[Rfam]
Overview
Mammalian CPEB3 ribozyme: a 76-nucleotide RNA sequence from Crocodylus porosus. It scores 42 bits against the family's covariance model.
RNA sequence: CAAGUGCCCUAAGGGCCACAGCAGGAGCGCGCAGGUCGUGGCCCUGUCCGACUCGGACAAACCUGCGAAUUCUGCU
Numbered sequence: 001c002a003a004g005u006g007c008c009c010u011a012a013g014g015g016c017c018a019c020a021g022c023a024g025g026a027g028c029g030c031g032c033a034g035g036u037c038g039u040g041g042c043c044c045u046g047u048c049c050g051a052c053u054c055g056g057a058c059a060a061a062c063c064u065g066c067g068a069a070u071u072c073u074g075c076u
Stems, first nucleotide, its partner, number of pairs: 013044005020076007027039003048065001050063001053060001

Pairs were carried over by alignment from the consensus structure, which is taken from published work. The mammalian CPEB3 ribozyme is a self cleaving RNA located in the second intron of the CPEB3 gene which belongs to a family of genes regulating messenger RNA polyadenylation.